RNA sequence: UUCUUAUUAAGAGUGAGUGGAGGGACUUGGCCCUGUGAAGCUCCAGCAACAACCGCAAGGUGACGUGCUAAAUCCAACAAGGUAACUUGAAAGAUAAGAA
Dot-bracket structure: ((((((((....(.((((...(((..[[[[)))......)))))((((.(.(((....)))...)))))...(]]]]((((....))))..)))))))))
Numbered sequence: 001u002u003c004u005u006a007u008u009a010a011g012a013g014u015g016a017g018u019g020g021a022g023g024g025a026c027u028u029g030g031c032c033c034u035g036u037g038a039a040g041c042u043c044c045a046g047c048a049a050c051a052a053c054c055g056c057a058a059g060g061u062g063a064c065g066u067g068c069u070a071a072a073u074c075c076a077a078c079a080a081g082g083u084a085a086c087u088u089g090a091a092a093g094a095u096a097a098g099a100a
Stems, first nucleotide, its partner, number of pairs: 001100008013044001015043004022033003027077004045069004050065001052061003073092001078089004